[Rfam]
The record is a 93-nucleotide RNA from Pseudorhodobacter sp. PARRP1, which matches "Glycine riboswitch aptamer" in Rfam.
RNA sequence: CUAUCAGGAUCGGGAGAAUCCAGCAGGAAACUUCUGGUGCCGAAGGAGCAACCGCCCCGGUAAACUCUCAGGCUCAAGGACCGUUCUGAUAAC
Numbered sequence: 001c002u003a004u005c006a007g008g009a010u011c012g013g014g015a016g017a018a019u020c021c022a023g024c025a026g027g028a029a030a031c032u033u034c035u036g037g038u039g040c041c042g043a044a045g046g047a048g049c050a051a052c053c054g055c056c057c058c059g060g061u062a063a064a065c066u067c068u069c070a071g072g073c074u075c076a077a078g079g080a081c082c083g084u085u086c087u088g089a090u091a092a093c
Stems, first nucleotide, its partner, number of pairs: 007087003011083003020037004039073003042069002046067003052060002
Dot-bracket structure: ......(((.(((......((((..........)))).(((((..(((...((.....))....))))).))).......))).)))......